RNA: let-7 microRNA precursor family
RNA sequence: CUGAGGUGAGGUAGUAGGUUGUAUAGUUGAGAAGUACAACAUUGGAGAUGACUGUACAACCCGUUACCUUUUUUCGG
Numbered sequence: 001c002u003g004a005g006g007u008g009a010g011g012u013a014g015u016a017g018g019u020u021g022u023a024u025a026g027u028u029g030a031g032a033a034g035u036a037c038a039a040c041a042u043u044g045g046a047g048a049u050g051a052c053u054g055u056a057c058a059a060c061c062c063g064u065u066a067c068c069u070u071u072u073u074u075c076g077g
Base pairs, nucleotide, nucleotide: 001077002076003075004074005073006072008070009069010068011067012066013065014064015063017061018060019059020058021057022056023055024054025053026052027051040047